[Rfam]
A member of the RNA family "Manganese Mn2+ riboswitch aptamer (yybP-ykoY)" from Aerosticca soli, 181 nucleotides long. The match comes from Rfam's covariance-model search (56 bits). For this family Rfam cites "Mn(2+)-sensing mechanisms of yybP-ykoY orphan riboswitches" (Price et al., Mol Cell, 2015). This RNA was originally discovered in E. coli during a large scale screen and was named SraF. The family was later found to exist upstream of related families of protein genes in many bacteria, including the the yybP and ykoK genes in B. subtilis.
RNA sequence: CGCUUCGUCAUUGGGGAGUAGCCAUCCCGUCGCUCACGGCGCGGGAAUCCGGGUCAACAUCCUUGGGGUUUGCAAGACCUCAUGGUCCGGAUGGCCGCAUGGACGGCCCGGCGAGACCUUUGGCCACGACAUGCCACCGGCUGGGCGGCGGUGUCGUCGCGCCAUCGGUCAAGUGCCGCCC
Numbered sequence: 001c002g003c004u005u006c007g008u009c010a011u012u013g014g015g016g017a018g019u020a021g022c023c024a025u026c027c028c029g030u031c032g033c034u035c036a037c038g039g040c041g042c043g044g045g046a047a048u049c050c051g052g053g054u055c056a057a058c059a060u061c062c063u064u065g066g067g068g069u070u071u072g073c074a075a076g077a078c079c080u081c082a083u084g085g086u087c088c089g090g091a092u093g094g095c096c097g098c099a100u101g102g103a104c105g106g107c108c109c110g111g112c113g114a115g116a117c118c119u120u121u122g123g124c125c126a127c128g129a130c131a132u133g134c135c136a137c138c139g140g141c142u143g144g145g146c147g148g149c150g151g152u153g154u155c156g157u158c159g160c161g162c163c164a165u166c167g168g169u170c171a172a173g174u175g176c177c178g179c180c181c
Base pairs, nucleotide, nucleotide: 026045027044028043047092048091049090050089051088052087053086054085055084056083064082065081066080067079068078069077070076071075093180094179095178097176098175099174